A member of the RNA family "Xanthomonas sRNA sX9" from Xanthomonas albilineans, 75 nucleotides long.
RNA sequence: GUGUACCCCCGUGUACACCACGGUUCCUGCGCACUGUCCGCGCCGCCCGACAGCGGCUCGCGACAUUUUUCAGCC
Numbered sequence: 001g002u003g004u005a006c007c008c009c010c011g012u013g014u015a016c017a018c019c020a021c022g023g024u025u026c027c028u029g030c031g032c033a034c035u036g037u038c039c040g041c042g043c044c045g046c047c048c049g050a051c052a053g054c055g056g057c058u059c060g061c062g063a064c065a066u067u068u069u070u071c072a073g074c075c
Base pairs, nucleotide, nucleotide: 002017003016004015005014006013021036022035023034024033026031047073049071050070052069053068

Notes: The source organism's lineage runs through Bacteria, Pseudomonadota, Gammaproteobacteria, Lysobacterales and Xanthomonas albilineans. Rfam classes the family as a small RNA. The base pairs follow the family's consensus structure, which was predicted with RNAalifold.